[Rfam]
This 251-nucleotide part of an RNA from an uncultured archaeon belongs to the Rfam family "Archaeal large subunit ribosomal RNA".
RNA sequence: GAAAGUCUGAGGGGAAGUUGCUUUUAGUACGAGAGGAACAAGGCAACGGCGUCACUAGUCUACCAGUUGUCCGACAGGGCAUCGCUGGGCAGCCACACGCUAAGUUGUAAGGGCUGAAAGCAUCUAAGCCCGAAAAACACCCUGAAAAGAGACUUUCACACGGACACUCAUAAAAGAUGAGUUAGAUAGAGUUGAGGUGUACACACCAAGGUAACGAGGUGCUCAGCCUGCAACCACUAAAAGUCCAACCC
Number, nucleotide and partner (000 for none) at each position: 001g157002a156003a155004a154005g153006u152007c151008u150009g000010a000011g143012g142013g141014g140015a000016a000017g047018u046019u045020g044021c043022u042023u041024u040025u000026a000027g000028u000029a000030c000031g000032a000033g000034a000035g000036g000037a000038a000039c000040a024041a023042g022043g021044c020045a019046a018047c017048g101049g100050c099051g098052u097053c000054a000055c000056u095057a000058g093059u000060c000061u000062a000063c088064c087065a086066g085067u084068u081069g080070u079071c078072c077073g000074a000075c000076a000077g072078g071079g070080c069081a068082u000083c000084g067085c066086u065087g064088g063089g000090c000091a000092g000093c058094c000095a056096c000097a052098c051099g050100c049101u048102a000103a000104g138105u137106u136107g000108u000109a000110a000111g131112g130113g129114c128115u127116g000117a000118a000119a000120g000121c000122a000123u000124c000125u000126a000127a115128g114129c113130c112131c111132g000133a000134a000135a000136a106137a105138c104139a000140c014141c013142c012143u011144g000145a000146a000147a000148a000149g000150a008151g007152a006153c005154u004155u003156u002157c001158a000159c000160a000161c000162g246163g245164a244165c243166a182167c181168u180169c179170a178171u000172a000173a000174a000175a000176g000177a000178u170179g169180a168181g167182u166183u000184a000185g000186a000187u239188a238189g237190a000191g234192u233193u232194g231195a229196g228197g227198u000199g000200u000201a000202c000203a000204c221205a220206c219207c218208a000209a000210g215211g000212u000213a000214a000215c210216g000217a000218g207219g206220u205221g204222c000223u000224c000225a000226g000227c197228c196229u195230g000231c194232a193233a192234c191235c000236a000237c189238u188239a187240a000241a000242a000243g165244u164245c163246c162247a000248a000249c000250c000251c000